[Rfam]
RNA: Small nucleolar RNA snR80
Organism: Piedraia hortae
RNA sequence: ACAACUUUGCCGACACUCUGGCCCCUACCAUCCCCUCUGUGGUUAGGGCCUAUUUGGUGCAAAGAAGAUCAAUUGACCCAUUACUCACCGCGCCGUCUUUCCUUUGUGGACGGAGUGGUCCAUCACUACGGUCUACAU
Numbered sequence: 001a002c003a004a005c006u007u008u009g010c011c012g013a014c015a016c017u018c019u020g021g022c023c024c025c026u027a028c029c030a031u032c033c034c035c036u037c038u039g040u041g042g043u044u045a046g047g048g049c050c051u052a053u054u055u056g057g058u059g060c061a062a063a064g065a066a067g068a069u070c071a072a073u074u075g076a077c078c079c080a081u082u083a084c085u086c087a088c089c090g091c092g093c094c095g096u097c098u099u100u101c102c103u104u105u106g107u108g109g110a111c112g113g114a115g116u117g118g119u120c121c122a123u124c125a126c127u128a129c130g131g132u133c134u135a136c137a138u
Stems, first nucleotide, its partner, number of pairs: 007062003020050005027043005075133004088118004093113006